RNA: FMN riboswitch aptamer (RFN element)
Organism: Cognatilysobacter bugurensis
RNA sequence: CGACGUCUUCAGGGCGGGGUGAGAUUCCCCACCGGCGGUAGGUGCGCGAUGCGCACGAGCCCGCGAGCGCCCGUCGCCUUGCGUGUCGGGGUCAGCAGAUCCGGUCGAAUGCCGGAGCCGACGGUUGGACGGCCUGCGCCGUCCUCACAGUCCGGAUGAAAGAAGACGGCU
Numbered sequence: 001c002g003a004c005g006u007c008u009u010c011a012g013g014g015c016g017g018g019g020u021g022a023g024a025u026u027c028c029c030c031a032c033c034g035g036c037g038g039u040a041g042g043u044g045c046g047c048g049a050u051g052c053g054c055a056c057g058a059g060c061c062c063g064c065g066a067g068c069g070c071c072c073g074u075c076g077c078c079u080u081g082c083g084u085g086u087c088g089g090g091g092u093c094a095g096c097a098g099a100u101c102c103g104g105u106c107g108a109a110u111g112c113c114g115g116a117g118c119c120g121a122c123g124g125u126u127g128g129a130c131g132g133c134c135u136g137c138g139c140c141g142u143c144c145u146c147a148c149a150g151u152c153c154g155g156a157u158g159a160a161a162g163a164a165g166a167c168g169g170c171u
Base pairs, nucleotide, nucleotide: 004168005167006166007165008164009163010162017029018028019027033120034119035064036063037062038061059118060117067096068095100116101115102114103113104112122154123153124152